This 82-nucleotide sequence from Coturnix japonica belongs to the Rfam family "Small nucleolar RNA SNORD111".

RNA sequence: CAGCCUGAAGUGAUGAUCUUAAUCCAUGUCUCUUCUCUGAGAUUUAUUGUGGAGACAACUAGAAGAAUUUCUGAUCAGGCUU
Numbered sequence: 001c002a003g004c005c006u007g008a009a010g011u012g013a014u015g016a017u018c019u020u021a022a023u024c025c026a027u028g029u030c031u032c033u034u035c036u037c038u039g040a041g042a043u044u045u046a047u048u049g050u051g052g053a054g055a056c057a058a059c060u061a062g063a064a065g066a067a068u069u070u071c072u073g074a075u076c077a078g079g080c081u082u
Stems, first nucleotide, its partner, number of pairs: 002081004
Its family is annotated with RNA processing and nucleolus in the Gene Ontology. It scores 60 bits against the family's covariance model.